Description:
Shown here is a 48-nucleotide RNA from Streptomyces sp. PAN_FS17, a member of the family "raiA-hairpin RNA". It scores 71 bits against the family's covariance model. Pairs were carried over by alignment from the consensus structure, which is taken from published work.
[Rfam]
RNA sequence: CACCGAGUCCGAGGCUUCGGGGUUCCCCGGGGCCUGGUGCAAAAGGGA
Numbered sequence: 001c002a003c004c005g006a007g008u009c010c011g012a013g014g015c016u017u018c019g020g021g022g023u024u025c026c027c028c029g030g031g032g033c034c035u036g037g038u039g040c041a042a043a044a045g046g047g048a
Base pairs, nucleotide, nucleotide: 013034014033015032016031017030018029019028020027

The organism belongs to Streptomyces, within Bacteria.